[Rfam]
This 104-nucleotide RNA from Aliivibrio fischeri belongs to the Rfam family "Translational regulator of tfoXVC". Pairs were carried over by alignment from the consensus structure, which was predicted with WAR. Lineage of the source: Bacteria > Pseudomonadota > Gammaproteobacteria > Aliivibrio > Aliivibrio fischeri. Rfam classes the family as a small RNA.

RNA sequence: AUUCUAAUAGAAGUAACAAGAAGUAUCUUGUUACUUCGGCAGCAAGCGAAGGCGUCUUUGGCGCCCGUGGCGUAGUCCCCCCGGCUACGUCACGAUCUUUUUUU
Numbered sequence: 001a002u003u004c005u006a007a008u009a010g011a012a013g014u015a016a017c018a019a020g021a022a023g024u025a026u027c028u029u030g031u032u033a034c035u036u037c038g039g040c041a042g043c044a045a046g047c048g049a050a051g052g053c054g055u056c057u058u059u060g061g062c063g064c065c066c067g068u069g070g071c072g073u074a075g076u077c078c079c080c081c082c083g084g085c086u087a088c089g090u091c092a093c094g095a096u097c098u099u100u101u102u103u104u
Stems, first nucleotide, its partner, number of pairs: 012035010039047002051065006066094012